The family of this 137-nucleotide RNA from Chelydra serpentina is "Small nucleolar RNA SNORA12".
Pairs were carried over by alignment from the consensus structure, which was predicted with RNAalifold.
Rfam describes the family as follows. U108 belongs to the H/ACA family of snoRNAs.
[Rfam]
RNA sequence: CAUUGGGUGGUUUUCUACCUGGUGGAUCUGUGACAGCUUCAGAGUGGCCUCAAUCUACCACAAAGAUUAUUGGAGGGCCGUCAUAAAAACAUUUCAAGAACUUUGAGUUUUCAGUUAUUCUUCCAGCUCCUACAAGA
Numbered sequence: 001c002a003u004u005g006g007g008u009g010g011u012u013u014u015c016u017a018c019c020u021g022g023u024g025g026a027u028c029u030g031u032g033a034c035a036g037c038u039u040c041a042g043a044g045u046g047g048c049c050u051c052a053a054u055c056u057a058c059c060a061c062a063a064a065g066a067u068u069a070u071u072g073g074a075g076g077g078c079c080g081u082c083a084u085a086a087a088a089a090c091a092u093u094u095c096a097a098g099a100a101c102u103u104u105g106a107g108u109u110u111u112c113a114g115u116u117a118u119u120c121u122u123c124c125a126g127c128u129c130c131u132a133c134a135a136g137a
Stems, first nucleotide, its partner, number of pairs: 005061001006059005021049003025045001027043004072130004096122005